[Rfam]
RNA sequence: CACCAGGUUGAUUCUGCCUGACGUGGACGCUUGCCUCGGAGAUUAAGCCAUGCAAGUCUGUGAAUAUUAUUGGAACAGUGAACGGCUCAGUAUAACACGUCUAUCUACCCACUUGCAUUAAUAACCAUGGGAAACUAUGGCUAAUAUUGUGGAUGAGGAUGUGACCUAUCAGCUUGACGGUACGGUAAGUGCGUACCGAGGCGAUAACGGGUAACGGGGAAUAUGGGUUUUAUUCCGGAGAGGGAGCCUGAGAGAUGGCUGCCACGUCCAAGGACGGCAGCAGGCGCGAAACUUACCCAAUGAACAUUGAGGUAGUUACGGGGCGUACUUUUUGUAUGAAGUGUGUGUAAAAAGCAUGCCGAAGUACUGGAGGGCAAGUCUGGUGCCAGCAGCCGCGGUAAUACCAGCUCCAGUAGCGUCUGUGUUUAUUGCUG
Numbered sequence: 001c002a003c004c005a006g007g008u009u010g011a012u013u014c015u016g017c018c019u020g021a022c023g024u025g026g027a028c029g030c031u032u033g034c035c036u037c038g039g040a041g042a043u044u045a046a047g048c049c050a051u052g053c054a055a056g057u058c059u060g061u062g063a064a065u066a067u068u069a070u071u072g073g074a075a076c077a078g079u080g081a082a083c084g085g086c087u088c089a090g091u092a093u094a095a096c097a098c099g100u101c102u103a104u105c106u107a108c109c110c111a112c113u114u115g116c117a118u119u120a121a122u123a124a125c126c127a128u129g130g131g132a133a134a135c136u137a138u139g140g141c142u143a144a145u146a147u148u149g150u151g152g153a154u155g156a157g158g159a160u161g162u163g164a165c166c167u168a169u170c171a172g173c174u175u176g177a178c179g180g181u182a183c184g185g186u187a188a189g190u191g192c193g194u195a196c197c198g199a200g201g202c203g204a205u206a207a208c209g210g211g212u213a214a215c216g217g218g219g220a221a222u223a224u225g226g227g228u229u230u231u232a233u234u235c236c237g238g239a240g241a242g243g244g245a246g247c248c249u250g251a252g253a254g255a256u257g258g259c260u261g262c263c264a265c266g267u268c269c270a271a272g273g274a275c276g277g278c279a280g281c282a283g284g285c286g287c288g289a290a291a292c293u294u295a296c297c298c299a300a301u302g303a304a305c306a307u308u309g310a311g312g313u314a315g316u317u318a319c320g321g322g323g324c325g326u327a328c329u330u331u332u333u334g335u336a337u338g339a340a341g342u343g344u345g346u347g348u349a350a351a352a353a354g355c356a357u358g359c360c361g362a363a364g365u366a367c368u369g370g371a372g373g374g375c376a377a378g379u380c381u382g383g384u385g386c387c388a389g390c391a392g393c394c395g396c397g398g399u400a401a402u403a404c405c406a407g408c409u410c411c412a413g414u415a416g417c418g419u420c421u422g423u424g425u426u427u428a429u430u431g432c433u434g
Stems, first nucleotide, its partner, number of pairs: 004020005022424010033324006039317002041287001047285003051282003056079002059077003066070001086240003096163007104156002109152004125140006165211003172202003178198007215237004219230004242263002245260003265276004293314001295313003301309003341359005367413006380407004389396002
Rfam assigns this 434-nucleotide part of an RNA from Amblyospora rugosa to the family "Microsporidia small subunit ribosomal RNA". On this family, see Yusupov et al., Science 2001: "Crystal structure of the ribosome at 5.5 A resolution". It is one of the family's seed sequences. Taxonomically the source falls in Amblyospora (Eukaryota, Opisthokonta, Microsporidia, Pansporoblastina). Its Rfam clan is "SSU clan".